[Rfam]
RNA sequence: CUAGGGGAUGAGUGGGAUGGUUGCAUAUAUACAAUGCUGACAAUGUAUUAUGCAACGUUUCACUCUACCCCAGGGA
Numbered sequence: 001c002u003a004g005g006g007g008a009u010g011a012g013u014g015g016g017a018u019g020g021u022u023g024c025a026u027a028u029a030u031a032c033a034a035u036g037c038u039g040a041c042a043a044u045g046u047a048u049u050a051u052g053c054a055a056c057g058u059u060u061c062a063c064u065c066u067a068c069c070c071c072a073g074g075g076a
Stems, first nucleotide, its partner, number of pairs: 001074002004071004010065009020056008029048005035042002
This 76-nucleotide sequence from Schistosoma mansoni belongs to the Rfam family "mir-2162 microRNA precursor family". Its family is annotated with miRNA-mediated post-transcriptional gene silencing and RISC complex in the Gene Ontology. The source organism's lineage runs through Eukaryota, Bilateria, Platyhelminthes, Trematoda and Schistosoma.